[Rfam]
The family of this 83-nucleotide sequence from Medioppia subpectinata is "mir-263 microRNA precursor family".
The source organism's lineage runs through Eukaryota, Opisthokonta, Arthropoda, Oppioidea and Medioppia.
The family's consensus secondary structure was predicted with RNAalifold.
RNA sequence: UGGUCUCUCUUAAUGGCACUGGAAGAAUUCACGGCAUUAUAUCAUUACACCCGUGGCUUCUCUGGUGCUAUCGAGAGCGUCGA
Numbered sequence: 001u002g003g004u005c006u007c008u009c010u011u012a013a014u015g016g017c018a019c020u021g022g023a024a025g026a027a028u029u030c031a032c033g034g035c036a037u038u039a040u041a042u043c044a045u046u047a048c049a050c051c052c053g054u055g056g057c058u059u060c061u062c063u064g065g066u067g068c069u070a071u072c073g074a075g076a077g078c079g080u081c082g083a
Stems, first nucleotide, its partner, number of pairs: 003081001005079001007077004013071006020064003025059002029056006